The record is a 107-nucleotide RNA from Garicola koreensis, which matches "mraW RNA" in Rfam. The match comes from Rfam's covariance-model search (59 bits).
[Rfam]
RNA sequence: AUAGGGCCCUUGAGUGCGCCUCCUUACCGCUGCGGGCGUCCUGACUUCACUUCCCCGAUGUCAGGCAGCCCCAGCGGUGGGGGAGCAGGCUUAAGGGCCUUUUCUGU
Numbered sequence: 001a002u003a004g005g006g007c008c009c010u011u012g013a014g015u016g017c018g019c020c021u022c023c024u025u026a027c028c029g030c031u032g033c034g035g036g037c038g039u040c041c042u043g044a045c046u047u048c049a050c051u052u053c054c055c056c057g058a059u060g061u062c063a064g065g066c067a068g069c070c071c072c073a074g075c076g077g078u079g080g081g082g083g084a085g086c087a088g089g090c091u092u093a094a095g096g097g098c099c100u101u102u103u104c105u106g107u
Stems, first nucleotide, its partner, number of pairs: 010094006018086002021083012034071004040065006047058001